Shown here is a 92-nucleotide RNA sequence from Agrobacterium tumefaciens, a member of the family "Rhizobiales sRNA Atu_Ti1". Lineage of the source: Bacteria > Pseudomonadati > Pseudomonadota > Agrobacterium > Agrobacterium tumefaciens.
RNA sequence: GUCCACGUUGCGGCGGACCAGAGCCAGAAGCCUCCGAGGCCAAUGGCGGCAGCCGGCCGAUAUCUCGUCGUGAUAGUGAUCAGGCCGGCUGC
Numbered sequence: 001g002u003c004c005a006c007g008u009u010g011c012g013g014c015g016g017a018c019c020a021g022a023g024c025c026a027g028a029a030g031c032c033u034c035c036g037a038g039g040c041c042a043a044u045g046g047c048g049g050c051a052g053c054c055g056g057c058c059g060a061u062a063u064c065u066c067g068u069c070g071u072g073a074u075a076g077u078g079a080u081c082a083g084g085c086c087g088g089c090u091g092c
Base pairs, nucleotide, nucleotide: 001018002017003016004015023047024046025045026044031039032038049092050091051090052089053088054087055086056085057084058083063082069076